[Rfam]
RNA sequence: GAGCUGUGAUGAUAUUAGGCUUUAGCAAUGGUUGGGUCCAUCGCAUUUCUCUGAUUAAUCCAGAUGUAAUGCCAUUUGACUGAGCUC
Numbered sequence: 001g002a003g004c005u006g007u008g009a010u011g012a013u014a015u016u017a018g019g020c021u022u023u024a025g026c027a028a029u030g031g032u033u034g035g036g037u038c039c040a041u042c043g044c045a046u047u048u049c050u051c052u053g054a055u056u057a058a059u060c061c062a063g064a065u066g067u068a069a070u071g072c073c074a075u076u077u078g079a080c081u082g083a084g085c086u087c
Stems, first nucleotide, its partner, number of pairs: 001087004

A member of the RNA family "small nucleolar RNA snoR114" from Brassica napus, 87 nucleotides long. It scores 46 bits against the family's covariance model. Its family is annotated with nucleolus and RNA processing in the Gene Ontology. On this family, see Chen and Wu, Nucleic Acids Res 2009: "Mining small RNA sequencing data: a new approach to identify small nucleolar RNAs in Arabidopsis". The base pairs follow the family's consensus structure, which was predicted with RNAalifold.